[Rfam]
Nucleotides: 100
Base pairs, nucleotide, nucleotide: 001100002099003098004097005096006095007094008093013042014041015040016039017038021031022030023029025072026071027070028069043064044063045062046061048060049059051056068092073089074088075087076086077085078084
Number, partner (000 for none) and nucleotide at each position: 001100c002099u003098c004097u005096u006095a007094u008093c009000c010000a011000g012000a013042g014041a015040g016039g017038c018000a019000g020000a021031g022030g023029g024000a025072c026071u027070g028069g029023c030022c031021c032000a033000a034000u035000g036000a037000a038017g039016c040015c041014u042013c043064g044063g045062c046061a047000a048060c049059c050000g051056g052000a053000u054000u055000a056051c057000c058000a059049g060048g061046u062045g063044c064043c065000a066000a067000u068092u069028c070027c071026a072025g073089c074088a075087a076086a077085g078084c079000c080000g081000u082000g083000u084078g085077c086076u087075u088074u089073g090000a091000a092068a093008g094007a095006u096005a097004a098003g099002a100001g
The family of this 100-nucleotide sequence from Brevibacillus sp. WF146 is "SAM riboswitch aptamer (S box leader)". NCBI's taxonomy places the organism under Bacteria, Bacillota, Bacilli, Paenibacillaceae, Brevibacillus. A search with the family's covariance model found it, with a score of 99 bits. The literature on the family includes a 1998 paper in Mol Microbiol by Grundy and Henkin, "The S box regulon: a new global transcription termination control system for methionine and cysteine biosynthesis genes in gram-positive bacteria".